Shown here is a 172-nucleotide sequence from Mobilitalea sibirica, a member of the family "Lysine riboswitch aptamer".
[Rfam]
RNA sequence: ACUUAUGGUAGAGGUGCAUUGUUUAAAAGUAAACUGCAGGAUAUGUCAGGCAUAGAAGAUCGCAGUUGAAAGGAAACGGUGCCGAAGUGGUAAUAACCUGAUUUGUUACUGCUGGGCAUAUGGCGAAUAGUCAUAUGACUGUCAUCAAAAUUGAUGGAGCGCUGCCUAAAGA
Numbered sequence: 001a002c003u004u005a006u007g008g009u010a011g012a013g014g015u016g017c018a019u020u021g022u023u024u025a026a027a028a029g030u031a032a033a034c035u036g037c038a039g040g041a042u043a044u045g046u047c048a049g050g051c052a053u054a055g056a057a058g059a060u061c062g063c064a065g066u067u068g069a070a071a072g073g074a075a076a077c078g079g080u081g082c083c084g085a086a087g088u089g090g091u092a093a094u095a096a097c098c099u100g101a102u103u104u105g106u107u108a109c110u111g112c113u114g115g116g117c118a119u120a121u122g123g124c125g126a127a128u129a130g131u132c133a134u135a136u137g138a139c140u141g142u143c144a145u146c147a148a149a150a151u152u153g154a155u156g157g158a159g160c161g162c163u164g165c166c167u168a169a170a171g172a
Stems, first nucleotide, its partner, number of pairs: 007166005016082009032067006039060001086113011114140002117137008142157006
Taxonomically the source falls in Mobilitalea (Bacteria, Clostridia, Lachnospirales, Lachnospiraceae). Rfam links the family to the GO term lysine biosynthetic process.